[Rfam]
A member of the RNA family "ASpks TB sRNA" from Streptomyces sp. YIM 121038, 75 nucleotides long. The family's consensus secondary structure is taken from published work.

RNA sequence: CUUCACCGAACCCAGCCACAGCGGCCGGUCCUCGGGGCGCUCCCGCCCGUAGGUGGCGAGGAGGGCCUGGGCCUC
Numbered sequence: 001c002u003u004c005a006c007c008g009a010a011c012c013c014a015g016c017c018a019c020a021g022c023g024g025c026c027g028g029u030c031c032u033c034g035g036g037g038c039g040c041u042c043c044c045g046c047c048c049g050u051a052g053g054u055g056g057c058g059a060g061g062a063g064g065g066c067c068u069g070g071g072c073c074u075c
Base pairs, nucleotide, nucleotide: 015025016024017023031071032070033069038065043060047056048055049054
The match comes from Rfam's covariance-model search (82 bits). Taxonomically the source falls in Streptomyces (Bacteria, Bacillati, Actinomycetes, Kitasatosporales). For this family Rfam cites "Identification of small RNAs in Mycobacterium tuberculosis" (Arnvig and Young, Mol Microbiol, 2009).